The record is a 128-nucleotide RNA sequence from Hipposideros armiger, which matches "Small nucleolar RNA SNORA22" in Rfam.
Taxonomically the source falls in Hipposideros (Eukaryota, Chiroptera, Yinpterochiroptera, Rhinolophoidea).
Gene Ontology terms of the family: nucleolus and RNA processing.
From the family's description: ACA22 is a member of the H/ACA class of snoRNA that guide the sites of modification of uridines to pseudouridines.
[Rfam]
RNA sequence: AAACUUAAAAAUAGUUAAGAUGACUUUAUAGUUCUCUUGGUUUUGACACUGUGCUAGAGCAAUAUCUGUUCUUCUGUAUUGAAAGGACUAUUUGUCUUUAUAAAUGUAUUCAGAAAGUCAGCACAUUA
Numbered sequence: 001a002a003a004c005u006u007a008a009a010a011a012u013a014g015u016u017a018a019g020a021u022g023a024c025u026u027u028a029u030a031g032u033u034c035u036c037u038u039g040g041u042u043u044u045g046a047c048a049c050u051g052u053g054c055u056a057g058a059g060c061a062a063u064a065u066c067u068g069u070u071c072u073u074c075u076g077u078a079u080u081g082a083a084a085g086g087a088c089u090a091u092u093u094g095u096c097u098u099u100a101u102a103a104a105u106g107u108a109u110u111c112a113g114a115a116a117g118u119c120a121g122c123a124c125a126u127u128a
Base pairs, nucleotide, nucleotide: 001052003050006048012045013044015040016039017038018037019036023032024031025030056072057071058070059069060068061067073114074113075112076111077106078105079104080103081101083099084098085097086096087095

A search with the family's covariance model found it, with a score of 85 bits. The family has 31 seed sequences and 883 matches in Rfam 15.1.